A member of the RNA family "Pseudomon-groES RNA" from Pseudomonas sp. M30-35, 128 nucleotides long. Rfam classes the family as a cis-regulatory element.
[Rfam]
RNA sequence: AUAGCAAGCACCGCAAGGUUUUCUGUCACUAAGACAGAGCAGACUUCAGCGUUGUGCAAUGUGGAACGUGCAGUGUGCAACGCUACUGGCAACGCCAGACUUUGCUAACCGUCGGUGAAGACACCGGC
Numbered sequence: 001a002u003a004g005c006a007a008g009c010a011c012c013g014c015a016a017g018g019u020u021u022u023c024u025g026u027c028a029c030u031a032a033g034a035c036a037g038a039g040c041a042g043a044c045u046u047c048a049g050c051g052u053u054g055u056g057c058a059a060u061g062u063g064g065a066a067c068g069u070g071c072a073g074u075g076u077g078c079a080a081c082g083c084u085a086c087u088g089g090c091a092a093c094g095c096c097a098g099a100c101u102u103u104g105c106u107a108a109c110c111g112u113c114g115g116u117g118a119a120g121a122c123a124c125c126g127g128c
Stems, first nucleotide, its partner, number of pairs: 010019003021039006048084011086098004111128006
Overview
The match comes from Rfam's covariance-model search (58 bits). The organism belongs to Pseudomonas, within Bacteria.